About this RNA: Shown here is a 73-nucleotide RNA from Nitratiruptor sp. SB155-2, a member of the family "tRNA". Rfam classes the family as a transfer RNA. Transfer RNA (tRNA) molecules are approximately 80 nucleotides in length. Rfam links the family to the GO term triplet codon-amino acid adaptor activity. The base pairs follow the family's consensus structure, which is taken from published work.
RNA sequence: GGUCGCUUAGCUCAGUUGGUAGAGCGCUUGCCUUACAAGCAAGUGGUCAGUGGUUCGAGUCCACUAGCGACCA
Numbered sequence: 001g002g003u004c005g006c007u008u009a010g011c012u013c014a015g016u017u018g019g020u021a022g023a024g025c026g027c028u029u030g031c032c033u034u035a036c037a038a039g040c041a042a043g044u045g046g047u048c049a050g051u052g053g054u055u056c057g058a059g060u061c062c063a064c065u066a067g068c069g070a071c072c073a
Stems, first nucleotide, its partner, number of pairs: 001072007010025004027043005049065005
Dot-bracket structure: (((((((..((((........)))).(((((.......))))).....(((((.......)))))))))))).